[Rfam]
RNA sequence: GUGCGGUCCUAGCAUCCAAACACACACGGGCCAAAACAACCCAACAGUGACAACCAGAAAAUGGUGUCAUUGUUGGGGGAGAGUGUGUCGAUGCUAGAGAAGCACGCAGGUGAAACCACCGCUAUCUGUAAACAUCCAAUCCAACAGUGUGUUGAAAAACACGAUGUGGUUCGGUGCCAAAGAUAGGGUGCAUAUUACCCUGC
Numbered sequence: 001g002u003g004c005g006g007u008c009c010u011a012g013c014a015u016c017c018a019a020a021c022a023c024a025c026a027c028g029g030g031c032c033a034a035a036a037c038a039a040c041c042c043a044a045c046a047g048u049g050a051c052a053a054c055c056a057g058a059a060a061a062u063g064g065u066g067u068c069a070u071u072g073u074u075g076g077g078g079g080a081g082a083g084u085g086u087g088u089c090g091a092u093g094c095u096a097g098a099g100a101a102g103c104a105c106g107c108a109g110g111u112g113a114a115a116c117c118a119c120c121g122c123u124a125u126c127u128g129u130a131a132a133c134a135u136c137c138a139a140u141c142c143a144a145c146a147g148u149g150u151g152u153u154g155a156a157a158a159a160c161a162c163g164a165u166g167u168g169g170u171u172c173g174g175u176g177c178c179a180a181a182g183a184u185a186g187g188g189u190g191c192a193u194a195u196u197a198c199c200c201u202g203c
Base pairs, nucleotide, nucleotide: 001105002104003103004102009097010096011095012094013093014092015091020088021087022086023085024084025083106203107202108201109200110199118189119188120187122186123185124184125183126182127181
Dot-bracket structure: ((((....(((((((....((((((.........................................................))))))..)))))))....))))(((((.......(((.((((((.....................................................))))))))).........)))))

Rfam assigns this 203-nucleotide sequence to the family "Hairpin ribozyme 1 from viruses-like metatranscriptomes". A reference for the family is Weinberg et al. (2021), "Identification of over 200-fold more hairpin ribozymes than previously known in diverse circular RNAs", Nucleic Acids Res.